[Rfam]
RNA sequence: AGCGUGGGUGAUGAAAGCCUGACCUUAGGUAUGUCUUUUUGAACUGUUUUGGUUCAAAGCCUUGGGCUUACCAAUGAUAGGACUCGUCAUAGUUACACUGACACGCA
Number, nucleotide and partner (000 for none) at each position: 001a000002g106003c105004g104005u103006g102007g000008g000009u000010g000011a000012u000013g000014a000015a000016a000017g000018c000019c000020u000021g000022a000023c000024c000025u000026u000027a000028g000029g000030u000031a000032u000033g000034u000035c000036u000037u000038u000039u000040u000041g000042a000043a000044c000045u000046g000047u000048u000049u000050u000051g000052g000053u000054u000055c000056a000057a000058a000059g000060c000061c000062u000063u000064g000065g000066g000067c000068u000069u000070a000071c000072c000073a000074a000075u000076g000077a000078u000079a000080g000081g000082a000083c000084u000085c000086g000087u000088c000089a000090u000091a000092g000093u000094u000095a000096c000097a000098c000099u000100g000101a000102c006103a005104c004105g003106c002107a000
RNA: Small nucleolar RNA SNORD46
Organism: Mola mola